[Rfam]
RNA sequence: AUCGGUCGGCAACGCUCUCCUCCUCCCUGCGUUGCCGGCCACUCCAACCCCCGAAAUGGGGAAACGACAUAACCGAAUACAUCGGGCGCUCUCCUCCUCCCUGCGCUCGAUGUUACAAGAGAACGGCGGCACCUCUCCUCCUCCCUGGUGCCGCCGUUUUCG
Dot-bracket structure: ......(((..(..(..................................................)...)..)))....((((((((((.............))))))))))..........(((((((((((.............))))))))))).....